[Rfam]
RNA sequence: UGACGUGGAAGCGGUGAGCUGUUUCGGGAAGCAGUUUUCCGUGGAGUCUGACCGAGGGUUAUGUGUUACCUCAACCCGAAUAGGCACUUGCCGAAAGAAAACACUUGAU
Numbered sequence: 001u002g003a004c005g006u007g008g009a010a011g012c013g014g015u016g017a018g019c020u021g022u023u024u025c026g027g028g029a030a031g032c033a034g035u036u037u038u039c040c041g042u043g044g045a046g047u048c049u050g051a052c053c054g055a056g057g058g059u060u061a062u063g064u065g066u067u068a069c070c071u072c073a074a075c076c077c078g079a080a081u082a083g084g085c086a087c088u089u090g091c092c093g094a095a096a097g098a099a100a101a102c103a104c105u106u107g108a109u
Stems, first nucleotide, its partner, number of pairs: 002048003011042004016037007024079004063104003083092003
RNA: drum RNA